Description:
The family of this 77-nucleotide sequence from Centaurea solstitialis is "Small nucleolar RNA SNORD18". The source organism's lineage runs through Eukaryota, Spermatophyta, Asteraceae, Carduoideae and Centaurea. It is annotated as a C/D-box small nucleolar RNA. Its Rfam clan is "SNORD18 clan". For this family Rfam cites "Release of U18 snoRNA from its host intron requires interaction of Nop1p with the Rnt1p endonuclease" (Giorgi et al., EMBO J, 2001). Rfam links the family to the GO terms nucleolus and RNA processing.
RNA sequence: GAGAAAUGAUGAACAACAAAUUGGUCCGUGUUUCUGAAUUAAUCGUGACUGAUAAAAGUUAACCAAAUUCUGAUCUC
Number, nucleotide and partner (000 for none) at each position: 001g077002a076003g075004a074005a000006a000007u000008g000009a000010u000011g000012a000013a000014c000015a000016a000017c000018a000019a000020a000021u000022u000023g000024g000025u000026c000027c000028g000029u000030g000031u000032u000033u000034c000035u000036g000037a000038a000039u000040u000041a000042a000043u000044c000045g000046u000047g000048a000049c000050u000051g000052a000053u000054a000055a000056a000057a000058g000059u000060u000061a000062a000063c000064c000065a000066a000067a000068u000069u000070c000071u000072g000073a000074u004075c003076u002077c001